[Rfam]
The family of this 57-nucleotide sequence from aff. Roholtiella sp. LEGE 12411 is "Nitrogen stress-induced RNA 1". On this family, see Ionescu et al., J Mol Biol 2010: "Heterocyst-specific transcription of NsiR1, a non-coding RNA encoded in a tandem array of direct repeats in cyanobacteria".
RNA sequence: UGGUAGAUGCACCCUUAUAAAUUACUGCUCUCAGUCUUUGGCUGGGAGCUUUUAUUA
Number, nucleotide and partner (000 for none) at each position: 001u000002g013003g012004u011005a000006g000007a000008u000009g000010c000011a004012c003013c002014c000015u000016u000017a000018u000019a000020a000021a000022u000023u000024a000025c000026u000027g049028c048029u047030c046031u045032c044033a043034g042035u041036c040037u000038u000039u000040g036041g035042c034043u033044g032045g031046g030047a029048g028049c027050u000051u000052u000053u000054a000055u000056u000057a000

Taxonomically the source falls in Roholtiella (Bacteria, Bacillati, Cyanophyceae, Nostocales).
Rfam classes the family as a small RNA.
A search with the family's covariance model found it, with a score of 41 bits.